[Rfam]
Nucleotides: 070
Stems, first nucleotide, its partner, number of pairs: 007064003011060004016055008026039003
Number, partner (000 for none) and nucleotide at each position: 001000u002000u003000a004000c005000c006000a007064g008063u009062c010000a011060g012059g013058c014057u015000c016055u017054g018053g019052c020051c021050a022049c023048a024000u025000u026039c027038c028037a029000g030000g031000a032000c033000a034000c035000a036000g037028u038027g039026g040000a041000u042000c043000c044000u045000g046000g047000g048023u049022g050021u051020g052019g053018c054017u055016a056000a057014a058013g059012c060011c061000c062009g063008a064007c065000u066000a067000u068000a069000c070000a
A member of the RNA family "mir-344 microRNA precursor family" from Peromyscus maniculatus, 70 nucleotides long.
The base pairs follow the family's consensus structure, which was predicted with RNAalifold.
The literature on the family includes a 2010 paper in Genes Dev by Chiang et al., "Mammalian microRNAs: experimental evaluation of novel and previously annotated genes".
Gene Ontology terms of the family: miRNA-mediated post-transcriptional gene silencing and RISC complex.